This 143-nucleotide RNA sequence from Streptomyces sp. ISL-12 belongs to the Rfam family "Streptomyces-metH RNA". It scores 96 bits against the family's covariance model. The family's RNA type in Rfam is small RNA.
[Rfam]
RNA sequence: CUCGUCCGUCCCGUGGACGCCCUGACCGCGGGCCCCGCCUCCCGGCUACCCUGGCGGCGUGCGCCCUCCCGGUGUGUUGUGUACCGAUGUCCCCGGGAAGCCGCAAAGCCGACAGCCGUCGCAUCCUAGGGAGCCCGUCCAUG
Numbered sequence: 001c002u003c004g005u006c007c008g009u010c011c012c013g014u015g016g017a018c019g020c021c022c023u024g025a026c027c028g029c030g031g032g033c034c035c036c037g038c039c040u041c042c043c044g045g046c047u048a049c050c051c052u053g054g055c056g057g058c059g060u061g062c063g064c065c066c067u068c069c070c071g072g073u074g075u076g077u078u079g080u081g082u083a084c085c086g087a088u089g090u091c092c093c094c095g096g097g098a099a100g101c102c103g104c105a106a107a108g109c110c111g112a113c114a115g116c117c118g119u120c121g122c123a124u125c126c127u128a129g130g131g132a133g134c135c136c137g138u139c140c141a142u143g
Stems, first nucleotide, its partner, number of pairs: 060105004065100001067098006108122002111120003